A member of the RNA family "SL2 RNA" from Haemonchus placei, 107 nucleotides long.
The literature on the family includes a 2000 paper in Mol Cell Biol by Evans and Blumenthal, "trans splicing of polycistronic Caenorhabditis elegans pre-mRNAs: analysis of the SL2 RNA".
NCBI's taxonomy places the organism under Eukaryota, Protostomia, Ecdysozoa, Nematoda, Haemonchus.
Clan: SL clan.
A search with the family's covariance model found it, with a score of 52 bits.
Nucleotides: 107
Base pairs, nucleotide, nucleotide: 007035009031010030013026015024016023017022037060038059039058040057041055042054043053044052045051084103085102086101087100090096091095
Number, partner (000 for none) and nucleotide at each position: 001000g002000g003000u004000u005000c006000u007035g008000u009031c010030c011000c012000a013026g014000u015024a016023c017022c018000a019000c020000a021000a022017g023016g024015u025000a026013c027000u028000a029000u030010g031009g032000g033000a034000u035007u036000c037060u038059g039058a040057u041055c042054a043053a044052c045051c046000u047000u048000c049000g050000c051045g052044g053043u054042u055041g056000c057040g058039u059038c060037a061000a062000a063000a064000c065000c066000u067000a068000a069000a070000u071000u072000u073000u074000u075000g076000g077000a078000u079000a080000g081000c082000c083000u084103u085102c086101c087100u088000g089000g090096g091095g092000u093000a094000u095091c096090c097000g098000g099000g100087a101086g102085g103084g104000c105000a106000g107000c
Gene Ontology term of the family: mRNA trans splicing, via spliceosome. It is annotated as a non-coding RNA gene. The base pairs follow the family's consensus structure, which is taken from published work.